The record is a 68-nucleotide sequence from Branchiostoma floridae, which matches "mir-2076 microRNA precursor family" in Rfam. Its family is annotated with RISC complex and miRNA-mediated post-transcriptional gene silencing in the Gene Ontology. It is one of the family's seed sequences.
RNA sequence: UGGUAGAAUUGCACUAGAGUGAUUUGUUGAUUUUUGGACAUCAAAUCACUUCAGUGCAGUUCUCUCAC
Dot-bracket structure: (((.(((((((((((.((((((((((.((.........)).)))))))))).))))))))))).))).